[Rfam]
RNA: Guanidine-I riboswitch aptamer
RNA sequence: UAAAAAGCUUUCUAGGGUUCCGCAGUAUUUAAUUGGCAGGUCCGAGAGAAAGCGCACAAUUUAUUGUGUACACGGAAGGAUAAAAGCCUGGGAGAU
Numbered sequence: 001u002a003a004a005a006a007g008c009u010u011u012c013u014a015g016g017g018u019u020c021c022g023c024a025g026u027a028u029u030u031a032a033u034u035g036g037c038a039g040g041u042c043c044g045a046g047a048g049a050a051a052g053c054g055c056a057c058a059a060u061u062u063a064u065u066g067u068g069u070a071c072a073c074g075g076a077a078g079g080a081u082a083a084a085a086g087c088c089u090g091g092g093a094g095a096u
Base pairs, nucleotide, nucleotide: 007053008052009051010050011049012048015043016042020040021039022037023035024034025033026032054069055068056067057066058065059064071091073094077089078088079087